RNA sequence: CGACGAGGCAUUAUUACUUUUGGUACGCGCUGUGACACGUCAAACUCGUACCGUGAGUAAUAAUGCGAUGUCG
Numbered sequence: 001c002g003a004c005g006a007g008g009c010a011u012u013a014u015u016a017c018u019u020u021u022g023g024u025a026c027g028c029g030c031u032g033u034g035a036c037a038c039g040u041c042a043a044a045c046u047c048g049u050a051c052c053g054u055g056a057g058u059a060a061u062a063a064u065g066c067g068a069u070g071u072c073g
Stems, first nucleotide, its partner, number of pairs: 009065010021053007029045001
RNA: mir-126 microRNA precursor family